RNA sequence: AUCGGGUCUGGCGAUGGAACCCGCCGGGAGCUCUGCUCCGAACCGCAUACCGCUGAUAGUUCCUACCCGUCC
Numbered sequence: 001a002u003c004g005g006g007u008c009u010g011g012c013g014a015u016g017g018a019a020c021c022c023g024c025c026g027g028g029a030g031c032u033c034u035g036c037u038c039c040g041a042a043c044c045g046c047a048u049a050c051c052g053c054u055g056a057u058a059g060u061u062c063c064u065a066c067c068c069g070u071c072c
Stems, first nucleotide, its partner, number of pairs: 010025004016063005045053002
A member of the RNA family "Fluoride riboswitch aptamer (crcB RNA motif)" from Bifidobacterium psychraerophilum, 72 nucleotides long. The family's consensus secondary structure is taken from published work. Its family is annotated with positive regulation of gene expression and response to fluoride in the Gene Ontology. Taxonomically the source falls in Bifidobacterium (Bacteria, Actinomycetes, Bifidobacteriales, Bifidobacteriaceae). It scores 40 bits against the family's covariance model.